Shown here is a 165-nucleotide sequence from Firmicutes bacterium M10-2, a member of the family "Lysine riboswitch aptamer". Taxonomically the source falls in Bacillota (Bacteria, Bacillati). The base pairs follow the family's consensus structure, which is taken from published work. Rfam's curators write: Riboswitches are metabolite binding domains within certain messenger RNAs that serve as precision sensors for their corresponding targets.
RNA sequence: GAUAAAGAUAAAGGUAGCGGUGCAGAUGAGUACACAGUGGAGCAGGCAUGCAUUGAAGUUGUGGAAAGGCAAUCAUCGCCGAAAGUCUAUGGGUGGCGAUCCAAGAUUUGGGGUAUCGGGAAAGACCCGAUGCACUCCUUCAUACGAAGAGGCGUUAUCGAAAGC
Numbered sequence: 001g002a003u004a005a006a007g008a009u010a011a012a013g014g015u016a017g018c019g020g021u022g023c024a025g026a027u028g029a030g031u032a033c034a035c036a037g038u039g040g041a042g043c044a045g046g047c048a049u050g051c052a053u054u055g056a057a058g059u060u061g062u063g064g065a066a067a068g069g070c071a072a073u074c075a076u077c078g079c080c081g082a083a084a085g086u087c088u089a090u091g092g093g094u095g096g097c098g099a100u101c102c103a104a105g106a107u108u109u110g111g112g113g114u115a116u117c118g119g120g121a122a123a124g125a126c127c128c129g130a131u132g133c134a135c136u137c138c139u140u141c142a143u144a145c146g147a148a149g150a151g152g153c154g155u156u157a158u159c160g161a162a163a164g165c
Stems, first nucleotide, its partner, number of pairs: 007159005017079006025070001033063006083109005090103005110136002113133008138149004